tp2: a 107-nucleotide RNA sequence from Sodalis glossinidius.
It is annotated as a small RNA.
For this family Rfam cites "Computational identification of noncoding RNAs in E. coli by comparative genomics" (Rivas et al., Curr Biol, 2001).
It is one of the family's seed sequences.
[Rfam]
RNA sequence: GGUGUUCCUUAUCUAUCUUUAAUAUUGGUUUAGUUGGAGCCUGUCUUCCUAUGCUCUGGCCGUCAGAACAUACGAAGACAGGCCCAUAGCUUCUGCUGCCGCGUGGG
Numbered sequence: 001g002g003u004g005u006u007c008c009u010u011a012u013c014u015a016u017c018u019u020u021a022a023u024a025u026u027g028g029u030u031u032a033g034u035u036g037g038a039g040c041c042u043g044u045c046u047u048c049c050u051a052u053g054c055u056c057u058g059g060c061c062g063u064c065a066g067a068a069c070a071u072a073c074g075a076a077g078a079c080a081g082g083c084c085c086a087u088a089g090c091u092u093c094u095g096c097u098g099c100c101g102c103g104u105g106g107g
Stems, first nucleotide, its partner, number of pairs: 001100004022091001023088003036085002039083007048074001050072003055067004